[Rfam]
RNA sequence: CGAAAUCUUCAGGGCAGGGUGAAAUUCCCUACCGGCGGUAAAGUCCGCGAGCCGAGAGGCAUGAUCCGGUGUGAUUCCGGGACCGACAGUAAAGUCUGGAUGGAAGAAGAUAAAA
Numbered sequence: 001c002g003a004a005a006u007c008u009u010c011a012g013g014g015c016a017g018g019g020u021g022a023a024a025u026u027c028c029c030u031a032c033c034g035g036c037g038g039u040a041a042a043g044u045c046c047g048c049g050a051g052c053c054g055a056g057a058g059g060c061a062u063g064a065u066c067c068g069g070u071g072u073g074a075u076u077c078c079g080g081g082a083c084c085g086a087c088a089g090u091a092a093a094g095u096c097u098g099g100a101u102g103g104a105a106g107a108a109g110a111u112a113a114a115a
Base pairs, nucleotide, nucleotide: 005111006110007109008108009107010106017029018028019027031095032094033085034084035048036047037046038045043083044082053059065081066080067079068078069077087098088097089096
RNA: FMN riboswitch aptamer (RFN element)
Organism: Lachnospiraceae bacterium